Shown here is a 131-nucleotide sequence from Nezara viridula, a member of the family "U11 spliceosomal RNA". NCBI's taxonomy places the organism under Eukaryota, Metazoa, Bilateria, Pentatomidae, Nezara. It is annotated as a spliceosomal small nuclear RNA. Pairs were carried over by alignment from the consensus structure, which is taken from published work.
[Rfam]
RNA sequence: AAAAAGGGUGUUUGAUACUUCGAUGUCAUGCGUGACCUCCGGGUUGCGUAGGGUAUGGCAAUCAAGACAUACUCAACACGUAAUUUUUGUACUACUGGGGAUGUUGGCUGCCUCUUUGCACCGAUGCCCCA
Numbered sequence: 001a002a003a004a005a006g007g008g009u010g011u012u013u014g015a016u017a018c019u020u021c022g023a024u025g026u027c028a029u030g031c032g033u034g035a036c037c038u039c040c041g042g043g044u045u046g047c048g049u050a051g052g053g054u055a056u057g058g059c060a061a062u063c064a065a066g067a068c069a070u071a072c073u074c075a076a077c078a079c080g081u082a083a084u085u086u087u088u089g090u091a092c093u094a095c096u097g098g099g100g101a102u103g104u105u106g107g108c109u110g111c112c113u114c115u116u117u118g119c120a121c122c123g124a125u126g127c128c129c130c131a
Base pairs, nucleotide, nucleotide: 008079009078010077011076012075013028014027015026016025017024029050030049031048032047033046034045035044036043037042051074052073053072054071055070056069057068098129099128100127103125104124105123106122107121109120110119111118